Annotation:
Rfam assigns this 124-nucleotide sequence from Cellvibrio sp. KY-GH-1 to the family "t44 RNA". From the family's description: This family consists of a number of bacterial RNA genes of between 135 and 170 bases in length. NCBI's taxonomy places the organism under Bacteria, Pseudomonadota, Cellvibrionales, Cellvibrionaceae, Cellvibrio. A search with the family's covariance model found it, with a score of 58 bits.

Nucleotides: 124
Stems, first nucleotide, its partner, number of pairs: 023114008035105003041100003049096003
Number, partner (000 for none) and nucleotide at each position: 001000c002000c003000u004000u005000u006000g007000u008000u009000u010000a011000a012000c013000a014000a015000a016000c017000g018000u019000c020000a021000c022000a023114c024113a025112u026111a027110c028109a029108u030107c031000g032000a033000c034000a035105c036104g037103c038000a039000a040000a041100a042099c043098c044000u045000g046000g047000g048000u049096g050095c051094c052000u053000a054000a055000u056000g057000u058000u059000u060000g061000a062000c063000u064000c065000u066000a067000c068000c069000u070000a071000g072000g073000u074000a075000g076000a077000g078000u079000a080000a081000c082000u083000g084000c085000a086000a087000a088000c089000a090000u091000g092000c093000u094051g095050g096049u097000u098043g099042g100041u101000g102000a103037g104036c105035g106000g107030g108029g109028u110027g111026u112025a113024u114023g115000g116000a117000g118000g119000c120000c121000u122000a123000a124000c